[Rfam]
RNA sequence: UUGGGUGAAAUCAAUGUAGGACCCACACUUUGAAAAUAGAACCCACAUAAAGUGGUGGGAUAUACAUUGAUUUCAUCAGA
Numbered sequence: 001u002u003g004g005g006u007g008a009a010a011u012c013a014a015u016g017u018a019g020g021a022c023c024c025a026c027a028c029u030u031u032g033a034a035a036a037u038a039g040a041a042c043c044c045a046c047a048u049a050a051a052g053u054g055g056u057g058g059g060a061u062a063u064a065c066a067u068u069g070a071u072u073u074c075a076u077c078a079g080a
Stems, first nucleotide, its partner, number of pairs: 001080002004077015023058003026054007
The family of this 80-nucleotide RNA sequence from Medicago truncatula is "MIR5269 microRNA precursor family". It scores 85 bits against the family's covariance model. Pairs were carried over by alignment from the consensus structure, which was predicted with RNAalifold.